Bacterial large subunit ribosomal RNA: a 587-nucleotide part of an RNA from Lusitaniella coriacea.
The family's consensus secondary structure is taken from published work.
RNA sequence: CCUGCACCUGGACAGAAAGACCCUAUGAAGCUUUACUGUAGCCUGGAAUUGGGUUCGGGCUUCGCUUGCGCAGGAUAGGUGGGAGGCUGUGAAGUACCCCUUGUGGGGGGUAUAGAGCCAACAGUGAGAUACCACUCUAGCGAGGCUAGAAUUCUAACCCUGACCCGUUAACCGGGGAGGGAACAGUUUCAGGUGGGCAGUUUGACUGGGGCGGUCGCCUCCUAAAAAGUAACGGAGGCGCACAAAGGUUCCCUCAGGCUGGUUGGAAAUCAGCCAAAGAGUGUAAAGGCACAAGGGAGCUUGACUGCGAGACCUACAAGUCAAGCAGGGACGAAAGUCGGUCUUAGUGAUCCGACGGCACUGAGUGGAAGGGCCGUCGCUCAACGGAUAAAAGUUACUCUAGGGAUAACAGGCUUAUCUCCCCCAAGAGUCCACAUCGACGGGGAGGUUUGGCACCUCGAUGUCGGCUCAUCGCAACCUGGGGCGGAAGUACGUCCCAAGGGUUGGGCUGUUCGCCCAUUAAAGCGGUACGUGAGCUGGGUUCAGAACGUCGUGAGACAGUUCGGUCCAUAUCCGGUGCAGGCGCA
Numbered sequence: 001c002c003u004g005c006a007c008c009u010g011g012a013c014a015g016a017a018a019g020a021c022c023c024u025a026u027g028a029a030g031c032u033u034u035a036c037u038g039u040a041g042c043c044u045g046g047a048a049u050u051g052g053g054u055u056c057g058g059g060c061u062u063c064g065c066u067u068g069c070g071c072a073g074g075a076u077a078g079g080u081g082g083g084a085g086g087c088u089g090u091g092a093a094g095u096a097c098c099c100c101u102u103g104u105g106g107g108g109g110g111u112a113u114a115g116a117g118c119c120a121a122c123a124g125u126g127a128g129a130u131a132c133c134a135c136u137c138u139a140g141c142g143a144g145g146c147u148a149g150a151a152u153u154c155u156a157a158c159c160c161u162g163a164c165c166c167g168u169u170a171a172c173c174g175g176g177g178a179g180g181g182a183a184c185a186g187u188u189u190c191a192g193g194u195g196g197g198c199a200g201u202u203u204g205a206c207u208g209g210g211g212c213g214g215u216c217g218c219c220u221c222c223u224a225a226a227a228a229g230u231a232a233c234g235g236a237g238g239c240g241c242a243c244a245a246a247g248g249u250u251c252c253c254u255c256a257g258g259c260u261g262g263u264u265g266g267a268a269a270u271c272a273g274c275c276a277a278a279g280a281g282u283g284u285a286a287a288g289g290c291a292c293a294a295g296g297g298a299g300c301u302u303g304a305c306u307g308c309g310a311g312a313c314c315u316a317c318a319a320g321u322c323a324a325g326c327a328g329g330g331a332c333g334a335a336a337g338u339c340g341g342u343c344u345u346a347g348u349g350a351u352c353c354g355a356c357g358g359c360a361c362u363g364a365g366u367g368g369a370a371g372g373g374c375c376g377u378c379g380c381u382c383a384a385c386g387g388a389u390a391a392a393a394g395u396u397a398c399u400c401u402a403g404g405g406a407u408a409a410c411a412g413g414c415u416u417a418u419c420u421c422c423c424c425c426a427a428g429a430g431u432c433c434a435c436a437u438c439g440a441c442g443g444g445g446a447g448g449u450u451u452g453g454c455a456c457c458u459c460g461a462u463g464u465c466g467g468c469u470c471a472u473c474g475c476a477a478c479c480u481g482g483g484g485c486g487g488a489a490g491u492a493c494g495u496c497c498c499a500a501g502g503g504u505u506g507g508g509c510u511g512u513u514c515g516c517c518c519a520u521u522a523a524a525g526c527g528g529u530a531c532g533u534g535a536g537c538u539g540g541g542u543u544c545a546g547a548a549c550g551u552c553g554u555g556a557g558a559c560a561g562u563u564c565g566g567u568c569c570a571u572a573u574c575c576g577g578u579g580c581a582g583g584c585g586c587a
Stems, first nucleotide, its partner, number of pairs: 001583008010575003015569001022404004027400002029396005035201004042193007051154006058147009068137001078136005085119003094113008158181003164176004204216004217239006240385001242342002248300006254280002257275006281290002305328004311322003330339003353379007361372002413454003417451001418448007428438002465540001466538004470532001471529005478503002481498006505519005546564004550559003